The record is an 85-nucleotide RNA from Triticum aestivum, which matches "Small nucleolar RNA Z103" in Rfam. NCBI's taxonomy places the organism under Eukaryota, Tracheophyta, Magnoliopsida, Triticodae, Triticum. Rfam links the family to the GO terms nucleolus and RNA processing. Rfam 15.1 lists 2,844 matches to the family in 233 species. It scores 56 bits against the family's covariance model.
Nucleotides: 085
Base pairs, nucleotide, nucleotide: 001085002084003083004082
Number, partner (000 for none) and nucleotide at each position: 001085a002084u003083g004082g005000u006000a007000g008000u009000g010000a011000g012000c013000c014000c015000a016000a017000a018000u019000g020000a021000u022000c023000g024000a025000c026000u027000a028000u029000g030000a031000u032000u033000a034000u035000a036000c037000u038000a039000u040000g041000c042000g043000c044000a045000a046000c047000c048000g049000u050000a051000a052000u053000c054000c055000a056000u057000c058000g059000g060000g061000a062000u063000c064000c065000c066000a067000a068000g069000c070000c071000a072000g073000a074000a075000a076000u077000c078000u079000g080000a081000u082004c083003c084002a085001u